Shown here is a 53-nucleotide sequence from Kajamvirus SRIP1, a member of the family "Glutamine-II riboswitch aptamer". Its family is annotated with glutamine binding in the Gene Ontology. The literature on the family includes a 2019 paper in Nucleic Acids Res by Huang et al., "Structure and ligand binding of the glutamine-II riboswitch". Lineage of the source: Viruses > Heunggongvirae > Uroviricota > Kajamvirus > Kajamvirus SRIP1.

RNA sequence: GUACGUUCAACCUUCGGGUCGCAUGUUACCUAGUCAUGGAACGGGGGCUAGGU
Numbered sequence: 001g002u003a004c005g006u007u008c009a010a011c012c013u014u015c016g017g018g019u020c021g022c023a024u025g026u027u028a029c030c031u032a033g034u035c036a037u038g039g040a041a042c043g044g045g046g047g048c049u050a051g052g053u
Base pairs, nucleotide, nucleotide: 004043005042006041007040008039010019011018012017028053029052030051031050032049033048034046035045